[Rfam]
RNA sequence: CUUCACCGAACCCAGCCACAGCGGUACCGCCCGCCCGCCACGCCCGUAGGUGGACAGCAACGCCUGCGCCUC
Numbered sequence: 001c002u003u004c005a006c007c008g009a010a011c012c013c014a015g016c017c018a019c020a021g022c023g024g025u026a027c028c029g030c031c032c033g034c035c036c037g038c039c040a041c042g043c044c045c046g047u048a049g050g051u052g053g054a055c056a057g058c059a060a061c062g063c064c065u066g067c068g069c070c071u072c
Base pairs, nucleotide, nucleotide: 015025016024017023032068033067034066036062037061041057042055044053045052046051
Rfam assigns this 72-nucleotide RNA sequence from Nocardia aurantia to the family "ASpks TB sRNA". For this family Rfam cites "Identification of small RNAs in Mycobacterium tuberculosis" (Arnvig and Young, Mol Microbiol, 2009). The base pairs follow the family's consensus structure, which is taken from published work. The source organism's lineage runs through Bacteria, Bacillati, Actinomycetota, Actinomycetes and Nocardia. By type it is an antisense RNA.